RNA sequence: GGAAGAUUGAAUAUAACACCUCGUAUAAUAGCAGGGAUAUGGCUUGCAAGUUUCUACCCGACGACCCUAAAUCGUUGGACUAUGGGGUAUAUGGAUGUUCGU
Numbered sequence: 001g002g003a004a005g006a007u008u009g010a011a012u013a014u015a016a017c018a019c020c021u022c023g024u025a026u027a028a029u030a031g032c033a034g035g036g037a038u039a040u041g042g043c044u045u046g047c048a049a050g051u052u053u054c055u056a057c058c059c060g061a062c063g064a065c066c067c068u069a070a071a072u073c074g075u076u077g078g079a080c081u082a083u084g085g086g087g088u089a090u091a092u093g094g095a096u097g098u099u100c101g102u
Stems, first nucleotide, its partner, number of pairs: 018088008029049001031047005058078007

Purine riboswitch aptamer: a 102-nucleotide RNA from Exiguobacterium artemiae. The base pairs follow the family's consensus structure, which is taken from published work. Rfam links the family to the GO term purine nucleobase biosynthetic process. The sequence is in the family's curated seed alignment.